[Rfam]
Shown here is a 109-nucleotide RNA from Anaerosalibacter massiliensis, a member of the family "TPP riboswitch aptamer (THI element)". A search with the family's covariance model found it, with a score of 72 bits. The source organism's lineage runs through Bacteria, Bacillati, Bacillota, Tissierellales and Anaerosalibacter. Rfam's curators write: Vitamin B(1) in its active form thiamin pyrophosphate (TPP) is an essential coenzyme that is synthesised by coupling of pyrimidine and thiazole moieties in bacteria.
RNA sequence: AGAAAUUUAAAGGGGGGCUUAUAUAAUAGGCUGAGAUAGGAAUGUUAUUCCUGACCCUAAGAACCUGAUUUGGGUAAUUCCAGCGGAGGGACUUGUUUUUUUAUGCUUA
Number, nucleotide and partner (000 for none) at each position: 001a000002g000003a000004a000005a000006u000007u000008u095009a094010a093011a058012g057013g056014g055015g000016g000017g031018c030019u029020u028021a027022u000023a000024u000025a000026a000027u021028a020029g019030g018031c017032u000033g000034a000035g000036a000037u000038a052039g051040g050041a049042a048043u000044g000045u000046u000047a000048u042049u041050c040051c039052u038053g000054a000055c014056c013057c012058u011059a000060a000061g000062a000063a000064c089065c088066u087067g000068a000069u000070u083071u082072g081073g080074g000075u000076a000077a000078u000079u000080c073081c072082a071083g070084c000085g000086g000087a066088g065089g064090g000091a000092c000093u010094u009095g008096u000097u000098u000099u000100u000101u000102u000103a000104u000105g000106c000107u000108u000109a000